[Rfam]
RNA sequence: UUGCUUUGUCCUAAGUCAAACUUGUCCAAUUUUGACCAAGUUUAUUGAAGAAUAUAACAUCAUCUAUACUACCAAAUAUGCAUUAUCAAAAUAUAUUCCAUAGUGGAUUCAAUAAACAAAUUUGGUAUUGUAGAUGUUAUAUUUUUCUAUAAACUUGGUCAAAGUUGGACAAAUUUGACUUGGGACAAAGCAAA
Numbered sequence: 001u002u003g004c005u006u007u008g009u010c011c012u013a014a015g016u017c018a019a020a021c022u023u024g025u026c027c028a029a030u031u032u033u034g035a036c037c038a039a040g041u042u043u044a045u046u047g048a049a050g051a052a053u054a055u056a057a058c059a060u061c062a063u064c065u066a067u068a069c070u071a072c073c074a075a076a077u078a079u080g081c082a083u084u085a086u087c088a089a090a091a092u093a094u095a096u097u098c099c100a101u102a103g104u105g106g107a108u109u110c111a112a113u114a115a116a117c118a119a120a121u122u123u124g125g126u127a128u129u130g131u132a133g134a135u136g137u138u139a140u141a142u143u144u145u146u147c148u149a150u151a152a153a154c155u156u157g158g159u160c161a162a163a164g165u166u167g168g169a170c171a172a173a174u175u176u177g178a179c180u181u182g183g184g185a186c187a188a189a190g191c192a193a194a
Stems, first nucleotide, its partner, number of pairs: 005189005011183010022172005031163005045149001047147006055139003061136008072125006
Shown here is a 194-nucleotide sequence from Panicum miliaceum, a member of the family "MIR1435 microRNA precursor family".
Its family is annotated with miRNA-mediated post-transcriptional gene silencing and RISC complex in the Gene Ontology.